[Rfam]
RNA: Saccharopolyspora sRNA 389
Organism: Saccharopolyspora erythraea
RNA sequence: ACCAGGUUCGUGGUGGUGCGGUGCAGGAAGUCGGUGCGGGCACACCGGAUUUCGCGGUGUGCCCGUGCGACCUUGGUCUUGGCUUUGCGGCGGUUGUUCGAGCCCUUCUGCUUGCGGGCCAUUUGCCGCUGGUAGCGGGCGAGGUUGCGGGCCUUGCGGUCCAGAUGCUUCGGGUUGGCGAUCUUCUCGCCUGUCGACAGGACAGCAAAGUCCUUCACACCCAGGUCCACCCCGACCGCGCUGCCGGUCUCGGGCUGCGGUUCGGGGUCGUCGGUGUCCACGGCCAAGGUCACAUACCAGCGGCCAUCCGGCUCGCGGGACACGAUCACCAUCGUCGGAUUCAGCGUUGCGAGGGUUUCGUCGUCCCAGGACCACACGAACUCAAGCGGCGCGGUGUGCUUCGCCAGAGUCAGCUUGCCGCCGCGCAGGCGGAAAGCGCUGCGCGUGUAGUGCGCCGACUGGCGGCCGUUGCGGGGCUUGAAACGCGGGUAGCGCGCACGCCCGGCGAAGAAGUUCGCAUACGCGGUGUGCUGGUGCCGAAGUGUCUGCUGCAACGGCACGCUCGACACCUCAGACAGGAACGCCGGCUCGUCGG
Numbered sequence: 001a002c003c004a005g006g007u008u009c010g011u012g013g014u015g016g017u018g019c020g021g022u023g024c025a026g027g028a029a030g031u032c033g034g035u036g037c038g039g040g041c042a043c044a045c046c047g048g049a050u051u052u053c054g055c056g057g058u059g060u061g062c063c064c065g066u067g068c069g070a071c072c073u074u075g076g077u078c079u080u081g082g083c084u085u086u087g088c089g090g091c092g093g094u095u096g097u098u099c100g101a102g103c104c105c106u107u108c109u110g111c112u113u114g115c116g117g118g119c120c121a122u123u124u125g126c127c128g129c130u131g132g133u134a135g136c137g138g139g140c141g142a143g144g145u146u147g148c149g150g151g152c153c154u155u156g157c158g159g160u161c162c163a164g165a166u167g168c169u170u171c172g173g174g175u176u177g178g179c180g181a182u183c184u185u186c187u188c189g190c191c192u193g194u195c196g197a198c199a200g201g202a203c204a205g206c207a208a209a210g211u212c213c214u215u216c217a218c219a220c221c222c223a224g225g226u227c228c229a230c231c232c233c234g235a236c237c238g239c240g241c242u243g244c245c246g247g248u249c250u251c252g253g254g255c256u257g258c259g260g261u262u263c264g265g266g267g268u269c270g271u272c273g274g275u276g277u278c279c280a281c282g283g284c285c286a287a288g289g290u291c292a293c294a295u296a297c298c299a300g301c302g303g304c305c306a307u308c309c310g311g312c313u314c315g316c317g318g319g320a321c322a323c324g325a326u327c328a329c330c331a332u333c334g335u336c337g338g339a340u341u342c343a344g345c346g347u348u349g350c351g352a353g354g355g356u357u358u359c360g361u362c363g364u365c366c367c368a369g370g371a372c373c374a375c376a377c378g379a380a381c382u383c384a385a386g387c388g389g390c391g392c393g394g395u396g397u398g399c400u401u402c403g404c405c406a407g408a409g410u411c412a413g414c415u416u417g418c419c420g421c422c423g424c425g426c427a428g429g430c431g432g433a434a435a436g437c438g439c440u441g442c443g444c445g446u447g448u449a450g451u452g453c454g455c456c457g458a459c460u461g462g463c464g465g466c467c468g469u470u471g472c473g474g475g476g477c478u479u480g481a482a483a484c485g486c487g488g489g490u491a492g493c494g495c496g497c498a499c500g501c502c503c504g505g506c507g508a509a510g511a512a513g514u515u516c517g518c519a520u521a522c523g524c525g526g527u528g529u530g531c532u533g534g535u536g537c538c539g540a541a542g543u544g545u546c547u548g549c550u551g552c553a554a555c556g557g558c559a560c561g562c563u564c565g566a567c568a569c570c571u572c573a574g575a576c577a578g579g580a581a582c583g584c585c586g587g588c589u590c591g592u593c594g595g
Stems, first nucleotide, its partner, number of pairs: 002016003017580001019578001021576002025031001040068002043065001046061002049058003069146007077138002082133003087129007095121002097118001099116002101112003149213004154208004159203004164198001166197001170193001172191002178188001180186002220574001223571004230267006236260005244253002269565002274560005281551004287545001289543002295536008303527003307523001311350002314346002318342003323337004359471002362468002364465002366462004373454001375452003380446002383443001386442007395433001397431005402425003407419001409418002474516006486504005492499001582594002585591002